RNA sequence: GUCUAGCUAGAUAACUCUAGCUUGUAACCCAAGUGGGGCAUCAAGGUGAUGGGACAUGGCUGCGGUUUGUCUAGGUUGGGAUGUUUGUUGCACUAUGCUGGCUUGCCUGCUCCAAGUUGAGAGUUGAGUCAUGGUGUUGUGCGAAGGCUCGGUAUCAUGACUCCUAUACAAGAAGGCAAAGCGUGAGGCUAGUUUCAGAGCAACAAACACCUUUAGCUCCUGACACUAGAGGGAUCAUAGGCGGCUGCAUUACCAUCCCACAAUGCUUCGUGAUCCAAGCCACCUGAACCAUCGCUUUU
Numbered sequence: 001g002u003c004u005a006g007c008u009a010g011a012u013a014a015c016u017c018u019a020g021c022u023u024g025u026a027a028c029c030c031a032a033g034u035g036g037g038g039c040a041u042c043a044a045g046g047u048g049a050u051g052g053g054a055c056a057u058g059g060c061u062g063c064g065g066u067u068u069g070u071c072u073a074g075g076u077u078g079g080g081a082u083g084u085u086u087g088u089u090g091c092a093c094u095a096u097g098c099u100g101g102c103u104u105g106c107c108u109g110c111u112c113c114a115a116g117u118u119g120a121g122a123g124u125u126g127a128g129u130c131a132u133g134g135u136g137u138u139g140u141g142c143g144a145a146g147g148c149u150c151g152g153u154a155u156c157a158u159g160a161c162u163c164c165u166a167u168a169c170a171a172g173a174a175g176g177c178a179a180a181g182c183g184u185g186a187g188g189c190u191a192g193u194u195u196c197a198g199a200g201c202a203a204c205a206a207a208c209a210c211c212u213u214u215a216g217c218u219c220c221u222g223a224c225a226c227u228a229g230a231g232g233g234a235u236c237a238u239a240g241g242c243g244g245c246u247g248c249a250u251u252a253c254c255a256u257c258c259c260a261c262a263a264u265g266c267u268u269c270g271u272g273a274u275c276c277a278a279g280c281c282a283c284c285u286g287a288a289c290c291a292u293c294g295c296u297u298u299u
Base pairs, nucleotide, nucleotide: 001039003038005022006021007020008019009018010017011016028037029036030035043298044297045296046295047294048293049292050291051290052289055286056285059281060279061278064275065274067273068272069271070270074267075266076265078259079258080257081256082255083254085252089249090248099244101242102241103240104239105238107233108232110231111230112229114227116224117223118222119221121219122218123217124216126163127162128161129160130159131158132157133156134155135154136153137152138151139150141148142147171214172213173212175210183204184203189198